[Rfam]
RNA sequence: AGCCCUGGCAAUGGGCAAGGAGACACCUGAUUGUUGGUGUUGGUCUUAUAUCAGUCAGGGGCAAAGCAGCUGUUCAGUCCUUAGUUCAUCCUAGCUUGAUGCCUGUGAUGGUGGCCAGAGCUGUCUCAUGCCUGGGUCACAUAA
Numbered sequence: 001a002g003c004c005c006u007g008g009c010a011a012u013g014g015g016c017a018a019g020g021a022g023a024c025a026c027c028u029g030a031u032u033g034u035u036g037g038u039g040u041u042g043g044u045c046u047u048a049u050a051u052c053a054g055u056c057a058g059g060g061g062c063a064a065a066g067c068a069g070c071u072g073u074u075c076a077g078u079c080c081u082u083a084g085u086u087c088a089u090c091c092u093a094g095c096u097u098g099a100u101g102c103c104u105g106u107g108a109u110g111g112u113g114g115c116c117a118g119a120g121c122u123g124u125c126u127c128a129u130g131c132c133u134g135g136g137u138c139a140c141a142u143a144a
Stems, first nucleotide, its partner, number of pairs: 002062005008056001012053003018047003022041006084138001086136002098132001100130001104128002108124003112120001

The record is a 144-nucleotide sequence from Myotis brandtii, which matches "Small nucleolar RNA SNORA48" in Rfam. Pairs were carried over by alignment from the consensus structure, which was predicted with RNAalifold. A search with the family's covariance model found it, with a score of 75 bits. The snoRNA ACA 48 has been identified to guide pseudouridylation of the residue U3797 in the 28S rRNA subunit. The literature on the family includes a 1997 paper in J Mol Biol by Ofengand and Bakin, "Mapping to nucleotide resolution of pseudouridine residues in large subunit ribosomal RNAs from representative eukaryotes, prokaryotes, archaebacteria, mitochondria and chloroplasts". The family has 24 seed sequences and 2,109 matches in Rfam 15.1. It is annotated as an H/ACA-box small nucleolar RNA. Gene Ontology terms of the family: nucleolus and RNA processing. The organism belongs to Myotis, within Eukaryota.